[Rfam]
RNA sequence: GCUGGUGUAAAUGAUGACCCAAGACUUUUUUCCCCAUCAGAUCGACCGUGCUGAUGUCUUUGAAUUUUUGCCAGUUUAGUUCUGAUGCACCAGC
Numbered sequence: 001g002c003u004g005g006u007g008u009a010a011a012u013g014a015u016g017a018c019c020c021a022a023g024a025c026u027u028u029u030u031u032c033c034c035c036a037u038c039a040g041a042u043c044g045a046c047c048g049u050g051c052u053g054a055u056g057u058c059u060u061u062g063a064a065u066u067u068u069u070g071c072c073a074g075u076u077u078a079g080u081u082c083u084g085a086u087g088c089a090c091c092a093g094c
Stems, first nucleotide, its partner, number of pairs: 001094009

Shown here is a 94-nucleotide sequence from Vombatus ursinus, a member of the family "Small nucleolar SNORD12/SNORD106". It scores 90 bits against the family's covariance model. Gene Ontology terms of the family: nucleolus and RNA processing. The literature on the family includes a 2001 paper in EMBO J by Huttenhofer et al., "RNomics: an experimental approach that identifies 201 candidates for novel, small, non-messenger RNAs in mouse".